[Rfam]
RNA sequence: GGCGCGGCUAGGUCGACGGACCGAACAAUGGCAUCCCGCAUUCUGCCAUCCGCCGCGCAGCUUCUUCUCAAACGGUGCGG
Dot-bracket structure: .(((((((..((((....)))).....(((((...[[[[[[...)))))..)))))))................]]]]]]
The record is an 80-nucleotide sequence, which matches "int-alpA RNA" in Rfam. The family's consensus secondary structure is taken from published work. From the family's description: Acidobacteria (1 example), Planctomycetes (1 example), Proteobacteria. Rfam classes the family as a small RNA.